[Rfam]
RNA sequence: AAAGGAGCAAUAACCUCUUUCUUGGUCUCUCAAGAGGUGGGUAUUGCUCCUUUUUU
Number, nucleotide and partner (000 for none) at each position: 001a053002a052003a051004g050005g049006a048007g047008c046009a045010a044011u043012a042013a000014c040015c000016u000017c000018u000019u036020u035021c034022u033023u032024g031025g000026u000027c000028u000029c000030u000031c024032a023033a022034g021035a020036g019037g000038u000039g000040g014041g000042u012043a011044u010045u009046g008047c007048u006049c005050c004051u003052u002053u001054u000055u000056u000
RNA: Plastid-psbA-3 3UTR RNA